Rfam assigns this 82-nucleotide RNA from Diabrotica virgifera to the family "mir-46/mir-47/mir-281 microRNA precursor family". Its family is annotated with RISC complex and miRNA-mediated post-transcriptional gene silencing in the Gene Ontology. NCBI's taxonomy places the organism under Eukaryota, Protostomia, Eumetabola, Aparaglossata, Diabrotica virgifera.
[Rfam]
RNA sequence: AAAAUUCGGAAAUGAAGAGAGCUAUCCGUCGACAGUAUAUAUUUUACACUGUCAUGGAGUUGCUCUCUUUAUAAACGAAUUU
Numbered sequence: 001a002a003a004a005u006u007c008g009g010a011a012a013u014g015a016a017g018a019g020a021g022c023u024a025u026c027c028g029u030c031g032a033c034a035g036u037a038u039a040u041a042u043u044u045u046a047c048a049c050u051g052u053c054a055u056g057g058a059g060u061u062g063c064u065c066u067c068u069u070u071a072u073a074a075a076c077g078a079a080u081u082u
Base pairs, nucleotide, nucleotide: 014070015069016068017067018066020064021063022062025058026057027056028055031053032052033051035049036048